[Rfam]
RNA sequence: AUUCAUGUAUACCAGGGCAGUUGUUCAGUACGAGGGGGAACAAAGGGGUCCAAAUUGGGUUCCGCUCUUGGCCGACGGCCAGUGGAGCGAGGUACGUCCGGGGGAUUAUCCCUGAAAGCCCUAAGGCAGAACCCCGGCCCGGAAGAAGUAUGAUACCGCGUAGGGCUUGCAUCGGGAUGGUCACUUUGAAUUUUCGAGAGAUUUUUUCCCUCGCCCCUUCGCGGGCGGGGCUAAAAAUUGGCCCCGUGCAGGGGAACUCGGGAGUGUCUCGACAAACAGGCUCAGACUCCCCCCCCCUAGUAGAGAACACCCGAUGCUGAUGUUGCCUACCGAAUGUCGCAGGACGACUUAGUAACGGUCAGGGUUUGUGGGCGGGAGAGCAGCAUCCUCACUGCGAUCCGCUAAGAUUCUCCCUAAAAAGGCUGGGGUUUU
Dot-bracket structure: ...(((((.(.(..((((.(.(.((................))....).)(..(.((.....(((((((((((...))))))..)))))...))..)..).(((....(.(((..........))).)....))).))))....).)))))).......(((((.................................................................................................................................................................))))).((((...(........)...)...((((((((..(.....((((.(..((((........))))..)))))....).....))).....)))))....)))
Shown here is a 432-nucleotide part of an RNA from Chionoecetes opilio, a member of the family "Eukaryotic large subunit ribosomal RNA". Its Rfam clan is "LSU clan". Taxonomically the source falls in Chionoecetes (Eukaryota, Opisthokonta, Eumalacostraca, Pleocyemata).